[Rfam]
RNA sequence: ACUCGUCUGAGCGAGUAUAAAUAGGCUUUUGGCUCAGAGCGAUUCCUGGAGCGCUGUUUCCAGGGAUGUAGCA
Numbered sequence: 001a002c003u004c005g006u007c008u009g010a011g012c013g014a015g016u017a018u019a020a021a022u023a024g025g026c027u028u029u030u031g032g033c034u035c036a037g038a039g040c041g042a043u044u045c046c047u048g049g050a051g052c053g054c055u056g057u058u059u060c061c062a063g064g065g066a067u068g069u070a071g072c073a
Stems, first nucleotide, its partner, number of pairs: 001016004006038006025072003032040001042067010

Record summary:
The record is a 73-nucleotide RNA, which matches "Pistol ribozyme" in Rfam. A reference for the family is Teplova et al. (2020), "Crucial Roles of Two Hydrated Mg(2+) Ions in Reaction Catalysis of the Pistol Ribozyme", Angew Chem Int Ed Engl. Its family is annotated with catalytic activity in the Gene Ontology. The sequence is in the family's curated seed alignment.